The record is a 126-nucleotide RNA from Streptomyces roseus, which matches "Streptomyces RNA 3920" in Rfam.
RNA sequence: GAUAGGCCCCUGUCGUUACCGUGAUUGGACUCUGACGUUCAGUCAACUAGCCUUGAGCCCGUGGUUCUUCGCGCGCGGAACCCGGAGCGGUCCGAGCCACCAGGGGGGAGGCUCGGACCGCUCUCG
Number, nucleotide and partner (000 for none) at each position: 001g014002a013003u012004a011005g010006g000007c000008c000009c000010c005011u004012g003013u002014c001015g051016u050017u049018a048019c000020c000021g032022u000023g030024a000025u000026u000027g000028g000029a000030c023031u000032c021033u045034g044035a043036c042037g000038u000039u000040c000041a000042g036043u035044c034045a033046a000047c000048u018049a017050g016051c015052c000053u000054u000055g000056a000057g000058c075059c000060c073061g072062u071063g070064g069065u000066u000067c000068u000069u064070c063071g062072c061073g060074c000075g058076c084077g083078g000079a000080a000081c000082c000083c077084g076085g000086a122087g121088c120089g119090g118091u117092c116093c115094g114095a113096g112097c111098c110099a000100c107101c000102a000103g000104g000105g000106g000107g100108g000109a000110g098111g097112c096113u095114c094115g093116g092117a091118c090119c089120g088121c087122u086123c000124u000125c000126g000
The match comes from Rfam's covariance-model search (114 bits). For this family Rfam cites "Deep sequencing-based identification of small non-coding RNAs in Streptomyces coelicolor" (Vockenhuber et al., RNA Biol, 2011). Lineage of the source: Bacteria > Bacillati > Actinomycetota > Actinomycetes > Streptomyces.